[Rfam]
RNA sequence: AAGCCAUCCCGAGCGGCCGAGAGAUCUGGCUCUAUGACGCCGCAGCAACCACCUUUUUGAGGCCGGUGCUACCGCCAGGUCCGAUGGAGA
Number, nucleotide and partner (000 for none) at each position: 001a000002a000003g000004c087005c086006a085007u084008c083009c000010c000011g000012a000013g043014c042015g041016g040017c039018c000019g000020a000021g032022a031023g030024a000025u000026c078027u077028g076029g075030c023031u022032c021033u000034a000035u000036g000037a000038c000039g017040c016041c015042g014043c013044a070045g069046c068047a067048a000049c066050c065051a000052c062053c061054u060055u000056u000057u000058u000059g000060a054061g053062g052063c000064c000065g050066g049067u047068g046069c045070u044071a000072c000073c000074g082075c029076c028077a027078g026079g000080u000081c000082c074083g008084a007085u006086g005087g004088a000089g000090a000
This 90-nucleotide sequence from Paeniglutamicibacter gangotriensis belongs to the Rfam family "SAM riboswitch aptamer (S box leader)". Rfam links the family to the GO term regulation of gene expression. Pairs were carried over by alignment from the consensus structure, which is taken from published work. The organism belongs to Paeniglutamicibacter gangotriensis, within Bacteria.